About this RNA:
Shown here is a 104-nucleotide RNA sequence from Thalassobacillus cyri, a member of the family "TPP riboswitch aptamer (THI element)". The base pairs follow the family's consensus structure, which is taken from published work. The organism belongs to Thalassobacillus, within Bacteria. The match comes from Rfam's covariance-model search (64 bits). Vitamin B(1) in its active form thiamin pyrophosphate (TPP) is an essential coenzyme that is synthesised by coupling of pyrimidine and thiazole moieties in bacteria.

RNA sequence: AAGCCUUCCAAGGGGAGCCGAUUUUGGCUGAGAGUGGGCGCUCGUGUCCUUACCCUUUGAACCUGUUAGUUAAUACUAGCGUAGGAAUGGUGGCUUUUAUGAUG
Numbered sequence: 001a002a003g004c005c006u007u008c009c010a011a012g013g014g015g016a017g018c019c020g021a022u023u024u025u026g027g028c029u030g031a032g033a034g035u036g037g038g039c040g041c042u043c044g045u046g047u048c049c050u051u052a053c054c055c056u057u058u059g060a061a062c063c064u065g066u067u068a069g070u071u072a073a074u075a076c077u078a079g080c081g082u083a084g085g086a087a088u089g090g091u092g093g094c095u096u097u098u099a100u101g102a103u104g
Stems, first nucleotide, its partner, number of pairs: 006092001008090003011056004016050001017028004036049004062085004066079004